[Rfam]
Fluoride riboswitch aptamer (crcB RNA motif): a 74-nucleotide sequence from Herbaspirillum sp. Sphag64. NCBI's taxonomy places the organism under Bacteria, Pseudomonadati, Pseudomonadota, Burkholderiales, Herbaspirillum.
RNA sequence: CUCGCCCAAGGAGAUGGCAUGCCUCCUUCAACCGCGACCGGCAUCAUACCGGCGCUGAUGAUGCCUACAGAAAC
Numbered sequence: 001c002u003c004g005c006c007c008a009a010g011g012a013g014a015u016g017g018c019a020u021g022c023c024u025c026c027u028u029c030a031a032c033c034g035c036g037a038c039c040g041g042c043a044u045c046a047u048a049c050c051g052g053c054g055c056u057g058a059u060g061a062u063g064c065c066u067a068c069a070g071a072a073a074c
Base pairs, nucleotide, nucleotide: 010026011025012024013023016065017064018063019062020061034055035054036053

Pairs were carried over by alignment from the consensus structure, which is taken from published work.